[Rfam]
RNA sequence: UUCGUUCAAUAAAAACAUUCAGAGCCUUUAAUAAGACUCGGUGUACAAUUUUUGGAGAUCUUUCUCGUGAGAGAAGGUG
Numbered sequence: 001u002u003c004g005u006u007c008a009a010u011a012a013a014a015a016c017a018u019u020c021a022g023a024g025c026c027u028u029u030a031a032u033a034a035g036a037c038u039c040g041g042u043g044u045a046c047a048a049u050u051u052u053u054g055g056a057g058a059u060c061u062u063u064c065u066c067g068u069g070a071g072a073g074a075a076g077g078u079g
Stems, first nucleotide, its partner, number of pairs: 022039003026035003058078005064073003